[Rfam]
Shown here is a 257-nucleotide RNA from Zophobas morio, a member of the family "Arthropod 7SK RNA". Clan: 7SK clan. A reference for the family is Gruber et al. (2008), "Arthropod 7SK RNA", Mol Biol Evol. It is annotated as a non-coding RNA gene.
RNA sequence: GGAGGUGUGUGUCAGUGAUGGCACAACUGAACAUUGAUCGCUUUAGCUCAGUAGGCUGAUCUGCUCAGUGACGUGCGGUCACGUGGUCGAUCCAGCAACCAAUGGACUCUGACGAUGCCUUAGUCGCACGUCAGUCAUCCUCUGGUUUCUUGAACGUCCGCCAUUUCCAAAUUUUGGGGGGUCACGGAUGGGUUUCAUAUUUCAAACACCUCCAAAUAUUGGCACUGCAGUUUUCACGUAGUUCGCCAUUUUUAGAG
Numbered sequence: 001g002g003a004g005g006u007g008u009g010u011g012u013c014a015g016u017g018a019u020g021g022c023a024c025a026a027c028u029g030a031a032c033a034u035u036g037a038u039c040g041c042u043u044u045a046g047c048u049c050a051g052u053a054g055g056c057u058g059a060u061c062u063g064c065u066c067a068g069u070g071a072c073g074u075g076c077g078g079u080c081a082c083g084u085g086g087u088c089g090a091u092c093c094a095g096c097a098a099c100c101a102a103u104g105g106a107c108u109c110u111g112a113c114g115a116u117g118c119c120u121u122a123g124u125c126g127c128a129c130g131u132c133a134g135u136c137a138u139c140c141u142c143u144g145g146u147u148u149c150u151u152g153a154a155c156g157u158c159c160g161c162c163a164u165u166u167c168c169a170a171a172u173u174u175u176g177g178g179g180g181g182u183c184a185c186g187g188a189u190g191g192g193u194u195u196c197a198u199a200u201u202u203c204a205a206a207c208a209c210c211u212c213c214a215a216a217u218a219u220u221g222g223c224a225c226u227g228c229a230g231u232u233u234u235c236a237c238g239u240a241g242u243u244c245g246c247c248a249u250u251u252u253u254a255g256a257g
Stems, first nucleotide, its partner, number of pairs: 001213008015082005027068003032063002036061004040056004221247003224242005